The record is a 77-nucleotide RNA sequence from Geobacter sp. OR-1, which matches "c-di-GMP-I riboswitch aptamer" in Rfam. NCBI's taxonomy places the organism under Bacteria, Pseudomonadati, Thermodesulfobacteriota, Geobacterales, Geobacter. Clan: c-di-GMP_I riboswitch clan. From the family's description: GEMM was predicted in a large-scale screen for bacterial structured RNA regulatory elements. Rfam links the family to the GO term cyclic-di-GMP binding. A search with the family's covariance model found it, with a score of 46 bits.
RNA sequence: AAUCGAUAAUACUAAACCACCCGCGAGGGUGGGACGGAAAGCCUAAAGGGUCUUCACGAGACAGUCAGGUUGCCGAA
Numbered sequence: 001a002a003u004c005g006a007u008a009a010u011a012c013u014a015a016a017c018c019a020c021c022c023g024c025g026a027g028g029g030u031g032g033g034a035c036g037g038a039a040a041g042c043c044u045a046a047a048g049g050g051u052c053u054u055c056a057c058g059a060g061a062c063a064g065u066c067a068g069g070u071u072g073c074c075g076a077a
Stems, first nucleotide, its partner, number of pairs: 012037002017032006040071004048066002050062005